[Rfam]
RNA: mir-29 microRNA precursor family
Organism: Lepisosteus oculatus
RNA sequence: GGAUGACUGAUUUCCUCUGGUGUUCAGAGUCCACAAUGUUUUCUAGCACCAUUUGAAAUCGGUUAUAA
Numbered sequence: 001g002g003a004u005g006a007c008u009g010a011u012u013u014c015c016u017c018u019g020g021u022g023u024u025c026a027g028a029g030u031c032c033a034c035a036a037u038g039u040u041u042u043c044u045a046g047c048a049c050c051a052u053u054u055g056a057a058a059u060c061g062g063u064u065a066u067a068a
Base pairs, nucleotide, nucleotide: 003066004065005063007062008061009060010059011058012057013056014055018051019050020049021048022047026044027043028042